[Rfam]
RNA sequence: AAUAGACACAGUAACUGACGACAUUUGUGGAAAUGACCACAAGGAAGCUGUGUUUUAUAAAUAGUCGGGUCGUCUGGGCAGAGAUA
Numbered sequence: 001a002a003u004a005g006a007c008a009c010a011g012u013a014a015c016u017g018a019c020g021a022c023a024u025u026u027g028u029g030g031a032a033a034u035g036a037c038c039a040c041a042a043g044g045a046a047g048c049u050g051u052g053u054u055u056u057a058u059a060a061a062u063a064g065u066c067g068g069g070u071c072g073u074c075u076g077g078g079c080a081g082a083g084a085u086a
Stems, first nucleotide, its partner, number of pairs: 004055009015044002017074005027040004062081001064079003
A member of the RNA family "ZMP/ZTP riboswitch aptamer (pfl RNA motif)", 86 nucleotides long.
The literature on the family includes a 2015 paper in Chem Biol by Trausch et al., "Metal Ion-Mediated Nucleobase Recognition by the ZTP Riboswitch".
The base pairs follow the family's consensus structure, which is taken from published work.
Gene Ontology terms of the family: regulation of purine nucleotide biosynthetic process and one-carbon metabolic process.